[Rfam]
RNA sequence: GCAGUGUCAAUCUAGCAGUUAGGGGUUUACAAAAUGUGACACUUAUCUGUCAUAAAUUCAACCCCGGGAAGGUCUGAGAUUAGAUCGACAUAAUGUCUCUAGACGGGACGAUGUUGUAAUAGACAUGCAUGAGAACCAGAAACAGUUUGAUUUAUGUCAUAUUGCCGGGGAUACUCUUGUGAGUGGAGGCGGCAUUUAUCAAGUUGGAAACUCGUGUGAUCAGCAUUUUAAGUCUAAUCUGCAAGCCGGUACCCAUUAUGGACCGGAACUCAAUUCAGACUAAUCUGACACUGU
Numbered sequence: 001g002c003a004g005u006g007u008c009a010a011u012c013u014a015g016c017a018g019u020u021a022g023g024g025g026u027u028u029a030c031a032a033a034a035u036g037u038g039a040c041a042c043u044u045a046u047c048u049g050u051c052a053u054a055a056a057u058u059c060a061a062c063c064c065c066g067g068g069a070a071g072g073u074c075u076g077a078g079a080u081u082a083g084a085u086c087g088a089c090a091u092a093a094u095g096u097c098u099c100u101a102g103a104c105g106g107g108a109c110g111a112u113g114u115u116g117u118a119a120u121a122g123a124c125a126u127g128c129a130u131g132a133g134a135a136c137c138a139g140a141a142a143c144a145g146u147u148u149g150a151u152u153u154a155u156g157u158c159a160u161a162u163u164g165c166c167g168g169g170g171a172u173a174c175u176c177u178u179g180u181g182a183g184u185g186g187a188g189g190c191g192g193c194a195u196u197u198a199u200c201a202a203g204u205u206g207g208a209a210a211c212u213c214g215u216g217u218g219a220u221c222a223g224c225a226u227u228u229u230a231a232g233u234c235u236a237a238u239c240u241g242c243a244a245g246c247c248g249g250u251a252c253c254c255a256u257u258a259u260g261g262a263c264c265g266g267a268a269c270u271c272a273a274u275u276c277a278g279a280c281u282a283a284u285c286u287g288a289c290a291c292u293g294u
Base pairs, nucleotide, nucleotide: 001294002293003292004291007288008287009286012245013244015242016241017240018239022065023064024063025062026061036053037052038051039050040049041048074278075277076276077275078274083221084220085219086218095109096108097107098106099105111126112125113124114123115122127217128216129215130214131213132212133211146203147202148201149200150199151198246266247265248264249263250262252260
RNA: Nuclear RNase P
Organism: Microctonus aethiopoides